Rfam assigns this 131-nucleotide sequence from Caenorhabditis latens to the family "Caenorhabditis snoRNA ceN80".
The source organism's lineage runs through Eukaryota, Opisthokonta, Eumetazoa, Nematoda and Caenorhabditis.
Rfam links the family to the GO terms RNA processing and nucleolus.
By type it is an H/ACA-box small nucleolar RNA.
[Rfam]
RNA sequence: UGGCAUCGAAAAGGGACGGGGUUUCUUACUAGAUUGAUCCGUAUAAUUUUGAUGCGAAAGAAUAGAGAGUCGCAGUGUUACUCUUCUUUACACUACCUGUAUCUGGAGAGUGUCAAGCGGUUCCCACAUUU
Numbered sequence: 001u002g003g004c005a006u007c008g009a010a011a012a013g014g015g016a017c018g019g020g021g022u023u024u025c026u027u028a029c030u031a032g033a034u035u036g037a038u039c040c041g042u043a044u045a046a047u048u049u050u051g052a053u054g055c056g057a058a059a060g061a062a063u064a065g066a067g068a069g070u071c072g073c074a075g076u077g078u079u080a081c082u083c084u085u086c087u088u089u090a091c092a093c094u095a096c097c098u099g100u101a102u103c104u105g106g107a108g109a110g111u112g113u114c115a116a117g118c119g120g121u122u123c124c125c126a127c128a129u130u131u
Stems, first nucleotide, its partner, number of pairs: 003055009016042005024033003065125001067123007076115002079112008089101004